[Rfam]
Plant small nucleolar RNA R71: a 107-nucleotide sequence from Capsicum annuum. Rfam 15.1 lists 278,378 matches to the family in 216 species. Lineage of the source: Eukaryota > Tracheophyta > Gunneridae > Pentapetalae > Capsicum. The match comes from Rfam's covariance-model search (56 bits). It is annotated as a C/D-box small nucleolar RNA.

RNA sequence: UGAUGGUGAUGCGGAUAACUUCUGAGAAUGCCCUUGAAUCUCUCCCAAGCUUGGUAGAGAUUUUCUCCAUCUUUUUGCCUGAAACUCAAUAUCUCACUCCUUAAUCG
Numbered sequence: 001u002g003a004u005g006g007u008g009a010u011g012c013g014g015a016u017a018a019c020u021u022c023u024g025a026g027a028a029u030g031c032c033c034u035u036g037a038a039u040c041u042c043u044c045c046c047a048a049g050c051u052u053g054g055u056a057g058a059g060a061u062u063u064u065c066u067c068c069a070u071c072u073u074u075u076u077g078c079c080u081g082a083a084a085c086u087c088a089a090u091a092u093c094u095c096a097c098u099c100c101u102u103a104a105u106c107g
Stems, first nucleotide, its partner, number of pairs: 001107001003105002005102002057074002